[Rfam]
The record is a 118-nucleotide RNA from Oribacterium parvum, which matches "FMN riboswitch aptamer (RFN element)" in Rfam. It scores 108 bits against the family's covariance model. NCBI's taxonomy places the organism under Bacteria, Bacillota, Clostridia, Oribacterium, Oribacterium parvum.

RNA sequence: GUAGUUCUUCAGGGCGGGGUGCGAUUCCCCACUGGCGGUACAGUCCGCGACCUGCGUUUGCAGCUGAGUCGGUGCAAUUCCGACACCAACAGUAUAGUCUGGAUGAAAGAGGAGCGAG
Numbered sequence: 001g002u003a004g005u006u007c008u009u010c011a012g013g014g015c016g017g018g019g020u021g022c023g024a025u026u027c028c029c030c031a032c033u034g035g036c037g038g039u040a041c042a043g044u045c046c047g048c049g050a051c052c053u054g055c056g057u058u059u060g061c062a063g064c065u066g067a068g069u070c071g072g073u074g075c076a077a078u079u080c081c082g083a084c085a086c087c088a089a090c091a092g093u094a095u096a097g098u099c100u101g102g103a104u105g106a107a108a109g110a111g112g113a114g115c116g117a118g
Stems, first nucleotide, its partner, number of pairs: 004115007017029003031098002033088002035048004043086002052063002068084005090101003